[Rfam]
RNA sequence: GGAAGAGAAGCGUCCCCGGUGGGGCGCCCGGGCUUCAAACCCGGUGGAUUGCGCCAAGCGCGGUCGGUGGGUUCGACUCCCUCUCUCUUCC
Numbered sequence: 001g002g003a004a005g006a007g008a009a010g011c012g013u014c015c016c017c018g019g020u021g022g023g024g025c026g027c028c029c030g031g032g033c034u035u036c037a038a039a040c041c042c043g044g045u046g047g048a049u050u051g052c053g054c055c056a057a058g059c060g061c062g063g064u065c066g067g068u069g070g071g072u073u074c075g076a077c078u079c080c081c082u083c084u085c086u087c088u089u090c091c
Base pairs, nucleotide, nucleotide: 001091002090003089004088005087006086007085008084011026012025013024014023015022016021028044029043030042031041032040047065048064049063050062051061069081070080071079
Rfam assigns this 91-nucleotide RNA sequence from Diaphorobacter sp. HDW4B to the family "Selenocysteine transfer RNA". Taxonomically the source falls in Diaphorobacter (Bacteria, Pseudomonadota, Burkholderiales, Comamonadaceae).